[Rfam]
A member of the RNA family "hya RNA" from Rhodococcus sp. CX, 71 nucleotides long. The family's consensus secondary structure is taken from published work. The family's RNA type in Rfam is cis-regulatory element. The source organism's lineage runs through Bacteria, Actinomycetota, Actinomycetes, Mycobacteriales and Rhodococcus.

RNA sequence: AGCGCUGUGCAAGUGGGCCGACGGUCGACUCCGGCAGCGCAGGGGUGAACCGGCACUCCGGAAGGUGGCUC
Numbered sequence: 001a002g003c004g005c006u007g008u009g010c011a012a013g014u015g016g017g018c019c020g021a022c023g024g025u026c027g028a029c030u031c032c033g034g035c036a037g038c039g040c041a042g043g044g045g046u047g048a049a050c051c052g053g054c055a056c057u058c059c060g061g062a063a064g065g066u067g068g069c070u071c
Stems, first nucleotide, its partner, number of pairs: 003039006042059006